The family of this 70-nucleotide sequence from Actinidia chinensis is "Small nucleolar RNA Z105".
The literature on the family includes a 2003 paper in Nucleic Acids Res by Chen et al., "The high diversity of snoRNAs in plants: identification and comparative study of 120 snoRNA genes from Oryza sativa".
Rfam 15.1 lists 621 matches to the family in 204 species.
The base pairs follow the family's consensus structure, which was predicted with CMfinder.
The organism belongs to Actinidia chinensis, within Eukaryota.
RNA sequence: UUGUGAUGAUGACGAUCGAAAAUAUUCCGAUUUUUUCAUGAGAUGAUAAAAAACCUCCUACUCAUUCUGA
Numbered sequence: 001u002u003g004u005g006a007u008g009a010u011g012a013c014g015a016u017c018g019a020a021a022a023u024a025u026u027c028c029g030a031u032u033u034u035u036u037c038a039u040g041a042g043a044u045g046a047u048a049a050a051a052a053a054c055c056u057c058c059u060a061c062u063c064a065u066u067c068u069g070a
Base pairs, nucleotide, nucleotide: 006065007064008063009062028045